[Rfam]
RNA sequence: GUCAGUGGACGACCACUGCCAUAGAUACGUUUGUCGGGACGGCCCGC
Numbered sequence: 001g002u003c004a005g006u007g008g009a010c011g012a013c014c015a016c017u018g019c020c021a022u023a024g025a026u027a028c029g030u031u032u033g034u035c036g037g038g039a040c041g042g043c044c045c046g047c
Stems, first nucleotide, its partner, number of pairs: 001020001003018006035046004

The family of this 47-nucleotide RNA sequence from Nitrincola tibetensis is "Guanidine-II riboswitch aptamer (mini-ykkC)".
Gene Ontology term of the family: regulation of gene expression.
Rfam describes the family as follows. Simpler in structure and has fewer highly conserved nucleotide positions than the ykkC-yxkD leader.